[Rfam]
RNA sequence: AAUAAUCUUCAGGGCAGGGUGAAAUUCCCGAUCGGCGGUAAAGUCCGCGAGCCGAACGAAAAAGGUUUGGCAGGAACCGGUGAGAUUCCGGUACCGACAGUAUAGUCUGGAUGGAAGAAGAUGAAA
Numbered sequence: 001a002a003u004a005a006u007c008u009u010c011a012g013g014g015c016a017g018g019g020u021g022a023a024a025u026u027c028c029c030g031a032u033c034g035g036c037g038g039u040a041a042a043g044u045c046c047g048c049g050a051g052c053c054g055a056a057c058g059a060a061a062a063a064g065g066u067u068u069g070g071c072a073g074g075a076a077c078c079g080g081u082g083a084g085a086u087u088c089c090g091g092u093a094c095c096g097a098c099a100g101u102a103u104a105g106u107c108u109g110g111a112u113g114g115a116a117g118a119a120g121a122u123g124a125a126a
Stems, first nucleotide, its partner, number of pairs: 003124001005122006017029003031106002033096002035048004043094002053070001076092005098109003
The family of this 126-nucleotide RNA from Actinobacillus pleuropneumoniae is "FMN riboswitch aptamer (RFN element)". It is one of the family's seed sequences. The family's consensus secondary structure is taken from published work.